[Rfam]
RNA sequence: UAGCCUGAAAUGAUGUUAUGAAUUAAUUCAUGUCUCUUCCGAAAUGUAUUGUGGAGACAACUAAAUGCAUUUCUGAUCAGGCUU
Numbered sequence: 001u002a003g004c005c006u007g008a009a010a011u012g013a014u015g016u017u018a019u020g021a022a023u024u025a026a027u028u029c030a031u032g033u034c035u036c037u038u039c040c041g042a043a044a045u046g047u048a049u050u051g052u053g054g055a056g057a058c059a060a061c062u063a064a065a066u067g068c069a070u071u072u073c074u075g076a077u078c079a080g081g082c083u084u
Stems, first nucleotide, its partner, number of pairs: 002083004
Small nucleolar RNA SNORD111: an 84-nucleotide sequence from Phoenicopterus ruber.
The base pairs follow the family's consensus structure, which was predicted with RNAalifold.
By type it is a C/D-box small nucleolar RNA.
The literature on the family includes a 2001 paper in EMBO J by Huttenhofer et al., "RNomics: an experimental approach that identifies 201 candidates for novel, small, non-messenger RNAs in mouse".